Record summary: This 216-nucleotide sequence from Aquisalimonas sp. 2447 belongs to the Rfam family "Group II catalytic intron D1-D4-6". From the family's description: Group II introns are found in rRNA, tRNA and mRNA of organelles in fungi, plants and protists, and also in mRNA in bacteria. NCBI's taxonomy places the organism under Bacteria, Pseudomonadota, Chromatiales, Ectothiorhodospiraceae, Aquisalimonas.
[Rfam]
RNA sequence: UGAGCCCGCCCGGUAGAGGUUGGCCACCAGCCGGAAGCGAGUCUUGCGCUGCAGUGGGUAACUGCUGUGGUGAAGCGUAGACAGCGAGUGUCCAGGCUGCGUGAUUGAGCCCCGAAAUCCGCGACAUUGUGGGUGCCGACGGUGUCUGAAGACCGGAAGGCAGUAACGCUGCACUGUAGAGGCCUGGUGUGGUGUGCCCGCCGGGGUCCGAGAGCG
Numbered sequence: 001u002g003a004g005c006c007c008g009c010c011c012g013g014u015a016g017a018g019g020u021u022g023g024c025c026a027c028c029a030g031c032c033g034g035a036a037g038c039g040a041g042u043c044u045u046g047c048g049c050u051g052c053a054g055u056g057g058g059u060a061a062c063u064g065c066u067g068u069g070g071u072g073a074a075g076c077g078u079a080g081a082c083a084g085c086g087a088g089u090g091u092c093c094a095g096g097c098u099g100c101g102u103g104a105u106u107g108a109g110c111c112c113c114g115a116a117a118u119c120c121g122c123g124a125c126a127u128u129g130u131g132g133g134u135g136c137c138g139a140c141g142g143u144g145u146c147u148g149a150a151g152a153c154c155g156g157a158a159g160g161c162a163g164u165a166a167c168g169c170u171g172c173a174c175u176g177u178a179g180a181g182g183c184c185u186g187g188u189g190u191g192g193u194g195u196g197c198c199c200g201c202c203g204g205g206g207u208c209c210g211a212g213a214g215c216g
Stems, first nucleotide, its partner, number of pairs: 010034004018028003022184003037085002041082004045077002047072011106210001107208001109207006129201006135161003140155004166195010